Small nucleolar RNA snoR97: a 107-nucleotide RNA sequence from Tetracentron sinense.
NCBI's taxonomy places the organism under Eukaryota, Viridiplantae, Streptophyta, Tracheophyta, Tetracentron.
The base pairs follow the family's consensus structure, which was predicted with WAR.
On this family, see Marker et al., Curr Biol 2002: "Experimental RNomics: identification of 140 candidates for small non-messenger RNAs in the plant Arabidopsis thaliana".
The match comes from Rfam's covariance-model search (101 bits).
Rfam 15.1 lists 862 matches to the family in 223 species.
[Rfam]
RNA sequence: UUGGAAAGCUGGGUAUAGAGGCUGAAAAACUCAAAAAGUGUGUGUUGUCAUCAGCUUCUUCUCUUGCAUAUUUAACGAGAUUGGAGUUAAAUAACAGCACUAUAUUU
Numbered sequence: 001u002u003g004g005a006a007a008g009c010u011g012g013g014u015a016u017a018g019a020g021g022c023u024g025a026a027a028a029a030c031u032c033a034a035a036a037a038g039u040g041u042g043u044g045u046u047g048u049c050a051u052c053a054g055c056u057u058c059u060u061c062u063c064u065u066g067c068a069u070a071u072u073u074a075a076c077g078a079g080a081u082u083g084g085a086g087u088u089a090a091a092u093a094a095c096a097g098c099a100c101u102a103u104a105u106u107u
Base pairs, nucleotide, nucleotide: 042100043099044098045097046096047095053088054087055086056085057084058083060080061079062078063077